[Rfam]
RNA sequence: UAUUCUAUGGUAGAAAGAAAUAUAUGAAUCCUUCUACCAUACUAUCUAUUAUUGUUAUUGAAGUGUAUAAAAUUGUACUC
Number, nucleotide and partner (000 for none) at each position: 001u000002a045003u044004u000005c000006u041007a040008u039009g038010g037011u036012a035013g034014a033015a032016a000017g030018a029019a000020a000021u000022a000023u000024a000025u000026g000027a000028a000029u018030c017031c000032u015033u014034c013035u012036a011037c010038c009039a008040u007041a006042c000043u000044a003045u002046c000047u000048a000049u000050u000051a000052u000053u000054g000055u000056u000057a000058u000059u000060g000061a000062a000063g000064u000065g000066u000067a000068u000069a000070a000071a000072a000073u000074u000075g000076u000077a000078c000079u000080c000
RNA: Plastid-psbM 3UTR RNA